[Rfam]
RNA sequence: ACAGAACAUGCAUAAUAGUUUCGUAUAAUCUUGAGAAUCGGCUCAAGAGUCUCUACGAGGUCACCGUAAAUGAUCUACUCUACGAAUUCAGGAAGCUGUGCG
Numbered sequence: 001a002c003a004g005a006a007c008a009u010g011c012a013u014a015a016u017a018g019u020u021u022c023g024u025a026u027a028a029u030c031u032u033g034a035g036a037a038u039c040g041g042c043u044c045a046a047g048a049g050u051c052u053c054u055a056c057g058a059g060g061u062c063a064c065c066g067u068a069a070a071u072g073a074u075c076u077a078c079u080c081u082a083c084g085a086a087u088u089c090a091g092g093a094a095g096c097u098g099u100g101c102g
Stems, first nucleotide, its partner, number of pairs: 018088001020086006029048007057078001058076006
Rfam assigns this 102-nucleotide RNA sequence from Paenibacillus phyllosphaerae to the family "Purine riboswitch aptamer". Its Rfam clan is "Purine riboswitches". The family's consensus secondary structure is taken from published work. It scores 65 bits against the family's covariance model.